Rfam assigns this 571-nucleotide part of an RNA from Bryonosema plumatellae to the family "Microsporidia small subunit ribosomal RNA".
Rfam 15.1 lists 1,035 matches to the family in 436 species.
On this family, see Yusupov et al., Science 2001: "Crystal structure of the ribosome at 5.5 A resolution".

[Rfam]
RNA sequence: UGACGGAAGGAUACCACAAGGAGUGGAUUGUGCGGCUUAAUUUGACUCAACGCGGGACAACUUACCAGGGCCGAAUGUCUAUGAGAUUGGCGAUUUGAGAGAAUUCCCGAGAUUAGACAGAGGGUGGUGCAUGGCCGUUUUCAACACGUGGGGUGACCUGUCAGGUUAAUUCCGAUAACGCGUGAGGCCCUAGCUACAAUACUUUGUAGGACGGACAGUGGUAAGCUGUAGGAAGGAGGGCGAUAACAGGUCAGUGAUGCCCCCAGAUGCUCUGGGCUGCACGCGCAAUACAAUAUAUGAGUGAGAAUAGGUACAGAAAUGUAUGAUUUAAGCUUGUGUAUACCGGGGAUAAGCGUUUGUAAAUACGUUUUGGACUUGGAAUUCCUAGUAAUCGCAGGUCAUUAUGCUGCGAUGAAUGUGUCCCUGUUCUUUGUACACACCGCCCGUCACUAUCUUAGAUGAAUGUAUAGGUGAAAUGUCUGGACGUAAGAAAGGAAGUUGAACCUGUGCAAUUAGAUAAGAUAUAAGUCGUAACAAGGCUGCUAUAGGAGAACCUGUGGCAGGAUCAAUA
Numbered sequence: 001u002g003a004c005g006g007a008a009g010g011a012u013a014c015c016a017c018a019a020g021g022a023g024u025g026g027a028u029u030g031u032g033c034g035g036c037u038u039a040a041u042u043u044g045a046c047u048c049a050a051c052g053c054g055g056g057a058c059a060a061c062u063u064a065c066c067a068g069g070g071c072c073g074a075a076u077g078u079c080u081a082u083g084a085g086a087u088u089g090g091c092g093a094u095u096u097g098a099g100a101g102a103a104u105u106c107c108c109g110a111g112a113u114u115a116g117a118c119a120g121a122g123g124g125u126g127g128u129g130c131a132u133g134g135c136c137g138u139u140u141u142c143a144a145c146a147c148g149u150g151g152g153g154u155g156a157c158c159u160g161u162c163a164g165g166u167u168a169a170u171u172c173c174g175a176u177a178a179c180g181c182g183u184g185a186g187g188c189c190c191u192a193g194c195u196a197c198a199a200u201a202c203u204u205u206g207u208a209g210g211a212c213g214g215a216c217a218g219u220g221g222u223a224a225g226c227u228g229u230a231g232g233a234a235g236g237a238g239g240g241c242g243a244u245a246a247c248a249g250g251u252c253a254g255u256g257a258u259g260c261c262c263c264c265a266g267a268u269g270c271u272c273u274g275g276g277c278u279g280c281a282c283g284c285g286c287a288a289u290a291c292a293a294u295a296u297a298u299g300a301g302u303g304a305g306a307a308u309a310g311g312u313a314c315a316g317a318a319a320u321g322u323a324u325g326a327u328u329u330a331a332g333c334u335u336g337u338g339u340a341u342a343c344c345g346g347g348g349a350u351a352a353g354c355g356u357u358u359g360u361a362a363a364u365a366c367g368u369u370u371u372g373g374a375c376u377u378g379g380a381a382u383u384c385c386u387a388g389u390a391a392u393c394g395c396a397g398g399u400c401a402u403u404a405u406g407c408u409g410c411g412a413u414g415a416a417u418g419u420g421u422c423c424c425u426g427u428u429c430u431u432u433g434u435a436c437a438c439a440c441c442g443c444c445c446g447u448c449a450c451u452a453u454c455u456u457a458g459a460u461g462a463a464u465g466u467a468u469a470g471g472u473g474a475a476a477u478g479u480c481u482g483g484a485c486g487u488a489a490g491a492a493a494g495g496a497a498g499u500u501g502a503a504c505c506u507g508u509g510c511a512a513u514u515a516g517a518u519a520a521g522a523u524a525u526a527a528g529u530c531g532u533a534a535c536a537a538g539g540c541u542g543c544u545a546u547a548g549g550a551g552a553a554c555c556u557g558u559g560g561c562a563g564g565a566u567c568a569a570u571a
Stems, first nucleotide, its partner, number of pairs: 001437002003434003007431007016421002020385005025291001027289008035280002041056004065275007076119006087110004123263002126261004132257001133255001134251003137247003144183002147180003150159003164173002189239003202209002212232001215229005295339008346375001351370006391413007442535001445531002448528001451524007460515003464511009475500003479496002540563010